[Rfam]
RNA: abiF RNA
Organism: Alloscardovia theropitheci
RNA sequence: CCCCCUAAGCCUCUUAACAAUGCUCAACCCUGGGGGU
Numbered sequence: 001c002c003c004c005c006u007a008a009g010c011c012u013c014u015u016a017a018c019a020a021u022g023c024u025c026a027a028c029c030c031u032g033g034g035g036g037u
Stems, first nucleotide, its partner, number of pairs: 001036005008024003